[Rfam]
RNA sequence: CGUAUCGGCUGAAUCAGAGAUUGGCUGGUACAUUUGUUUAUAUUAACUCUUAGGAGAGUAUUAUGUCUCUGAAUGCAGAAACUAAAGCAGCUAUCGUUGCAGAAUAUGCACGUGAAGAA
Numbered sequence: 001c002g003u004a005u006c007g008g009c010u011g012a013a014u015c016a017g018a019g020a021u022u023g024g025c026u027g028g029u030a031c032a033u034u035u036g037u038u039u040a041u042a043u044u045a046a047c048u049c050u051u052a053g054g055a056g057a058g059u060a061u062u063a064u065g066u067c068u069c070u071g072a073a074u075g076c077a078g079a080a081a082c083u084a085a086a087g088c089a090g091c092u093a094u095c096g097u098u099g100c101a102g103a104a105u106a107u108g109c110a111c112g113u114g115a116a117g118a119a
Base pairs, nucleotide, nucleotide: 007026008025009024010023011022012021050073051072053070054069055068056067
Dot-bracket structure: ......((((((........)))))).......................((.((((..........)))).))..............................................
Shown here is a 119-nucleotide RNA sequence from Vibrio palustris, a member of the family "Ribosomal S15 leader". Clan: Ribosomal Protein S15 Leader clan. The family's RNA type in Rfam is cis-regulatory leader. Lineage of the source: Bacteria > Pseudomonadati > Gammaproteobacteria > Vibrionaceae > Vibrio.